c-di-GMP-I riboswitch aptamer: a 119-nucleotide RNA sequence from Parablautia intestinalis.
Rfam describes the family as follows. GEMM was predicted in a large-scale screen for bacterial structured RNA regulatory elements.
The match comes from Rfam's covariance-model search (54 bits).
[Rfam]
RNA sequence: CGGUUGCAAUGGCAAAUCACCGGAAACGAUGAGACGCAAAACCAGAGGCUAAGGUACAUUUCUCUAAGACAUAUUUCUGCUUCUGAAGAUAAAUGUGCUAUGUUCGUUCGGUUACCGGA
Numbered sequence: 001c002g003g004u005u006g007c008a009a010u011g012g013c014a015a016a017u018c019a020c021c022g023g024a025a026a027c028g029a030u031g032a033g034a035c036g037c038a039a040a041a042c043c044a045g046a047g048g049c050u051a052a053g054g055u056a057c058a059u060u061u062c063u064c065u066a067a068g069a070c071a072u073a074u075u076u077c078u079g080c081u082u083c084u085g086a087a088g089a090u091a092a093a094u095g096u097g098c099u100a101u102g103u104u105c106g107u108u109c110g111g112u113u114a115c116c117g118g119a
Stems, first nucleotide, its partner, number of pairs: 012037002017032003021028002040113004045109002047104003054098008